[Rfam]
RNA: Clostridiales-1 RNA
RNA sequence: UGAUACCAGGGUCGAAGGUCAAAAGUUGUUCGUGCUUGCACGAUAACACUUUUGACUUUACGACCCGCACAAACAUGAGAAAGUAGCAAUUUACAAAGUAAAUUAGCGGAUUUCGAAUGUUUGCAGAAUUGCGUGAGCUGUUUACAGCGAAGCAAUUCGUGGGUAUCG
Numbered sequence: 001u002g003a004u005a006c007c008a009g010g011g012u013c014g015a016a017g018g019u020c021a022a023a024a025g026u027u028g029u030u031c032g033u034g035c036u037u038g039c040a041c042g043a044u045a046a047c048a049c050u051u052u053u054g055a056c057u058u059u060a061c062g063a064c065c066c067g068c069a070c071a072a073a074c075a076u077g078a079g080a081a082a083g084u085a086g087c088a089a090u091u092u093a094c095a096a097a098g099u100a101a102a103u104u105a106g107c108g109g110a111u112u113u114c115g116a117a118u119g120u121u122u123g124c125a126g127a128a129u130u131g132c133g134u135g136a137g138c139u140g141u142u143u144a145c146a147g148c149g150a151a152g153c154a155a156u157u158c159g160u161g162g163g164u165a166u167c168g
Stems, first nucleotide, its partner, number of pairs: 001168007010065004016058011029045001030043005070123007079114004086107002088104005126158007137148004